A member of the RNA family "mir-30 microRNA precursor family" from Muraenolepis orangiensis, 77 nucleotides long. The match comes from Rfam's covariance-model search (69 bits). The organism belongs to Muraenolepis, within Eukaryota.
[Rfam]
Nucleotides: 077
Base pairs, nucleotide, nucleotide: 003075004074005073006072008070009069010068011067012066013065014064015063016062017061018060019059023057024056025055026054027053028052029051030050031049032048
Number, partner (000 for none) and nucleotide at each position: 001000g002000g003075g004074g005073c006072u007000a008070c009069u010068g011067u012066a013065a014064a015063c016062a017061u018060c019059c020000u021000u022000g023057a024056c025055u026054g027053g028052a029051a030050g031049c032048u033000a034000g035000u036000g037000c038000u039000u040000u041000g042000u043000c044000c045000u046000g047000g048032a049031g050030c051029u052028u053027u054026c055025a056024g057023u058000c059019g060018g061017a062016u063015g064014u065013u066012u067011g068010c069009a070008g071000c072006a073005g074004c075003c076000a077000a
The literature on the family includes a 2001 paper in Science by Lagos-Quintana et al., "Identification of novel genes coding for small expressed RNAs".